A member of the RNA family "RNase MRP" from Puccinia sorghi, 228 nucleotides long. The family's consensus secondary structure is taken from published work. NCBI's taxonomy places the organism under Eukaryota, Dikarya, Pucciniomycetes, Pucciniaceae, Puccinia. It scores 60 bits against the family's covariance model.
[Rfam]
Nucleotides: 228
Stems, first nucleotide, its partner, number of pairs: 002228001004226003009222005016181006025072001026070006041052004076213003080210004101153003107148001109146001113144004126136004183197006
Number, partner (000 for none) and nucleotide at each position: 001000g002228g003000c004226u005225a006224g007000u008000u009222a010221g011220c012219c013218a014000a015000g016181g017180a018179c019178c020177a021176u022000a023000c024000u025072u026070u027069u028068g029067u030066g031065u032000u033000a034000c035000a036000c037000u038000u039000u040000c041052a042051g043050c044049u045000u046000c047000u048000c049044a050043g051042c052041u053000a054000u055000a056000a057000c058000a059000c060000c061000u062000u063000c064000a065031a066030c067029a068028c069027a070026a071000g072025g073000a074000g075000a076213a077212a078211g079000u080210c081209c082208c083207c084000g085000g086000a087000a088000u089000a090000c091000u092000c093000a094000g095000c096000u097000g098000u099000c100000c101153a102152a103151c104000g105000a106000u107148u108000a109146a110000u111000g112000a113144u114143g115142g116141g117000u118000a119000c120000a121000a122000g123000g124000a125000u126136a127135g128134u129133u130000g131000u132000c133129a134128a135127u136126u137000u138000c139000a140000u141116u142115c143114c144113a145000u146109u147000c148107a149000a150000u151103g152102u153101u154000u155000a156000u157000u158000c159000a160000u161000a162000g163000g164000a165000a166000c167000a168000a169000a170000a171000g172000u173000a174000a175000u176021a177020u178019g179018g180017u181016c182000a183197u184196c185195c186194u187193a188192u189000a190000u191000a192188a193187u194186a195185g196184g197183a198000a199000a200000a201000c202000a203000u204000a205000a206000u207083g208082g209081g210080g211078c212077u213076u214000a215000c216000u217000c218013u219012g220011g221010c222009u223000u224006u225005u226004a227000u228002c